RNA: Glycine riboswitch aptamer
Nucleotides: 111
Stems, first nucleotide, its partner, number of pairs: 006106008020056004058091003061087002065085003071078001
Number, partner (000 for none) and nucleotide at each position: 001000a002000a003000a004000c005000c006106c007105c008104a009103c010102g011101u012100g013099g014000g015000a016000g017000a018000g019000u020056c021055c022054u023053c024000g025000g026000g027000g028000u029000g030000g031000u032000u033000c034000u035000c036000a037000a038000c039000g040000a041000c042000g043000a044000a045000c046000c047000a048000c049000c050000u051000g052000c053023g054022a055021g056020g057000c058091g059090c060089c061087g062086a063000a064000g065085g066084g067083g068000c069000a070000a071078c072000a073000u074000c075000c076000c077000c078071g079000g080000a081000a082000c083067c084066u085065c086062u087061c088000a089060g090059g091058c092000g093000c094000c095000c096000g097000g098000a099013c100012c101011a102010c103009g104008u105007g106006g107000g108000g109000g110000a111000g